The record is a 102-nucleotide RNA from Anaeromicropila herbilytica, which matches "azaaromatic riboswitch aptamer (yjdF RNA)" in Rfam.
[Rfam]
Nucleotides: 102
Base pairs, nucleotide, nucleotide: 005093006092007091008090009089010088011087022041023040024039025038026037027036042059043058044057045056046055047054069079070078071077
Number, partner (000 for none) and nucleotide at each position: 001000a002000u003000a004000u005093g006092c007091g008090a009089a010088g011087a012000u013000a014000a015000a016000a017000a018000c019000a020000c021000a022041g023040u024039c025038c026037g027036g028000u029000u030000g031000g032000u033000a034000g035000u036027c037026c038025g039024g040023g041022c042059g043058u044057a045056g046055c047054a048000a049000a050000u051000a052000a053000u054047u055046g056045c057044u058043a059042u060000c061000a062000g063000u064000a065000a066000c067000c068000u069079g070078c071077c072000u073000c074000c075000u076000u077071g078070g079069u080000u081000g082000u083000c084000c085000g086000u087011u088010c089009u090008u091007u092006g093005u094000u095000g096000a097000u098000u099000a100000g101000a102000a

The base pairs follow the family's consensus structure, which is taken from published work.